[Rfam]
RNA sequence: UAAAAAUGAAUAGAUUUGCCGUAGACAGUGGGUGCGCAAGCUUAAUAUUCCCACCGAGGUUUUAGAUAUAUAACGAAUCUUCAAGCCUCUUUGUCUGUGAUAAAGAGGCUUUUUAAGUUAUACG
Number, nucleotide and partner (000 for none) at each position: 001u000002a000003a000004a000005a000006a000007u000008g000009a000010a000011u000012a000013g000014a000015u000016u000017u000018g000019c000020c000021g000022u000023a000024g000025a000026c000027a000028g054029u053030g052031g051032g050033u000034g041035c040036g000037c000038a000039a000040g035041c034042u000043u000044a000045a000046u000047a000048u000049u000050c032051c031052c030053a029054c028055c000056g000057a000058g000059g000060u000061u000062u000063u000064a000065g000066a000067u000068a000069u000070a000071u000072a000073a000074c000075g000076a000077a000078u000079c000080u000081u000082c000083a000084a000085g109086c108087c107088u106089c105090u104091u103092u102093g101094u100095c000096u000097g000098u000099g000100a094101u093102a092103a091104a090105g089106a088107g087108g086109c085110u000111u000112u000113u000114u000115a000116a000117g000118u000119u000120a000121u000122a000123c000124g000
RNA: Ribosomal protein L10 leader